[Rfam]
RNA sequence: AAUAGGGAAGCUGAAAACUAUAUAGAGUAGGCA
Numbered sequence: 001a002a003u004a005g006g007g008a009a010g011c012u013g014a015a016a017a018c019u020a021u022a023u024a025g026a027g028u029a030g031g032c033a
Stems, first nucleotide, its partner, number of pairs: 002021004010032003